[Rfam]
Annotation
The family of this 81-nucleotide RNA from Polypterus senegalus is "mir-187 microRNA precursor family". For this family Rfam cites "Vertebrate microRNA genes" (Lim et al., Science, 2003). The source organism's lineage runs through Eukaryota, Opisthokonta, Vertebrata, Gnathostomata and Polypterus. The family's consensus secondary structure was predicted with RNAalifold. Rfam links the family to the GO terms RISC complex and miRNA-mediated post-transcriptional gene silencing.

RNA sequence: UUGUAGGGGCCGUUGGCUGCAACACAGGACAUGGGAGCUCCCUCUAACCCUCGUGUCUUGUGUUGCAGCCAGUGGAACCAA
Numbered sequence: 001u002u003g004u005a006g007g008g009g010c011c012g013u014u015g016g017c018u019g020c021a022a023c024a025c026a027g028g029a030c031a032u033g034g035g036a037g038c039u040c041c042c043u044c045u046a047a048c049c050c051u052c053g054u055g056u057c058u059u060g061u062g063u064u065g066c067a068g069c070c071a072g073u074g075g076a077a078c079c080a081a
Stems, first nucleotide, its partner, number of pairs: 011074002015070004020065011032053004